[Rfam]
RNA: Stem loopII regulatory element in POLB
RNA sequence: CACAGUGCUGGCCCCUUAGUUUAUUUCUUAACCUUUGCUUUGUAAAUGUCUUUCGUGUUUCUAAGUGAUUUUUUUCUUAUUCAUGCU
Numbered sequence: 001c002a003c004a005g006u007g008c009u010g011g012c013c014c015c016u017u018a019g020u021u022u023a024u025u026u027c028u029u030a031a032c033c034u035u036u037g038c039u040u041u042g043u044a045a046a047u048g049u050c051u052u053u054c055g056u057g058u059u060u061c062u063a064a065g066u067g068a069u070u071u072u073u074u075u076c077u078u079a080u081u082c083a084u085g086c087u
Base pairs, nucleotide, nucleotide: 009079010078011077016064017063018062019061025055031049032048034046035045036044037043038042